Shown here is a 64-nucleotide sequence from Pectinatus brassicae, a member of the family "RAGATH-18 RNA". NCBI's taxonomy places the organism under Bacteria, Negativicutes, Selenomonadales, Selenomonadaceae, Pectinatus.
RNA sequence: CCCUUGGAAUGCUAUAUAAACCAAAGUAGUCUUUAUGACAAAAUGGAGCAUGUUGAAUAGGGAA
Numbered sequence: 001c002c003c004u005u006g007g008a009a010u011g012c013u014a015u016a017u018a019a020a021c022c023a024a025a026g027u028a029g030u031c032u033u034u035a036u037g038a039c040a041a042a043a044u045g046g047a048g049c050a051u052g053u054u055g056a057a058u059a060g061g062g063a064a
Stems, first nucleotide, its partner, number of pairs: 001062004009051005021046003029039003

From the family's description: Actinobacteria, Firmicutes, Fusobacteria, Thermotogae (1 example). The base pairs follow the family's consensus structure, which is taken from published work.